Annotation
The record is a 74-nucleotide RNA from Cottoperca gobio, which matches "Small nucleolar RNA SNORD2" in Rfam.

RNA sequence: GGGUGAAAUGAUGUUUUACCAUCUUUCGGGACUGACUCUUAUAAUGGAGACUUCUUUUAUUUUACUGAUCACUU
Numbered sequence: 001g002g003g004u005g006a007a008a009u010g011a012u013g014u015u016u017u018a019c020c021a022u023c024u025u026u027c028g029g030g031a032c033u034g035a036c037u038c039u040u041a042u043a044a045u046g047g048a049g050a051c052u053u054c055u056u057u058u059a060u061u062u063u064a065c066u067g068a069u070c071a072c073u074u
Base pairs, nucleotide, nucleotide: 001074002073003072004071005070006069
It scores 63 bits against the family's covariance model. Rfam classes the family as a C/D-box small nucleolar RNA. Taxonomically the source falls in Cottoperca (Eukaryota, Actinopterygii, Ctenosquamata, Acanthomorphata).